[Rfam]
The record is a 75-nucleotide sequence from Galbibacter marinus, which matches "tRNA" in Rfam. By type it is a transfer RNA.
RNA sequence: GGGUCAUUAACUCAGUUGGUUUAGAGUGUCACCUUGACAGGGUGGAAGUCACUGGUUCGAGUCCAGUAUGACCCA
Numbered sequence: 001g002g003g004u005c006a007u008u009a010a011c012u013c014a015g016u017u018g019g020u021u022u023a024g025a026g027u028g029u030c031a032c033c034u035u036g037a038c039a040g041g042g043u044g045g046a047a048g049u050c051a052c053u054g055g056u057u058c059g060a061g062u063c064c065a066g067u068a069u070g071a072c073c074c075a
Stems, first nucleotide, its partner, number of pairs: 001074007010027004029045005051067005
From the family's description: Transfer RNA (tRNA) molecules are approximately 80 nucleotides in length.
It scores 63 bits against the family's covariance model.
Taxonomically the source falls in Galbibacter (Bacteria, Pseudomonadati, Flavobacteriia, Flavobacteriaceae).